[Rfam]
Rfam assigns this 116-nucleotide sequence from Seonamhaeicola maritimus to the family "Flavo-1 RNA". By type it is a small RNA. The source organism's lineage runs through Bacteria, Pseudomonadati, Flavobacteriia, Flavobacteriaceae and Seonamhaeicola. The base pairs follow the family's consensus structure, which is taken from published work.
RNA sequence: CGCGCGUUAGGGAUUGAAGCGGCAUCCUUUUUUGAGACUGCCAAGACCAAAAUAUAUUUUGGUUGAAGGUAUCGAAGCGAAGCUUAAAAAAGAUAUAGCACAAAGCCCGACCCGAU
Numbered sequence: 001c002g003c004g005c006g007u008u009a010g011g012g013a014u015u016g017a018a019g020c021g022g023c024a025u026c027c028u029u030u031u032u033u034g035a036g037a038c039u040g041c042c043a044a045g046a047c048c049a050a051a052a053u054a055u056a057u058u059u060u061g062g063u064u065g066a067a068g069g070u071a072u073c074g075a076a077g078c079g080a081a082g083c084u085u086a087a088a089a090a091a092g093a094u095a096u097a098g099c100a101c102a103a104a105g106c107c108c109g110a111c112c113c114g115a116u
Base pairs, nucleotide, nucleotide: 010108011107012106014104015103019099020098024094025093026092030089031088032087033086034085035084036083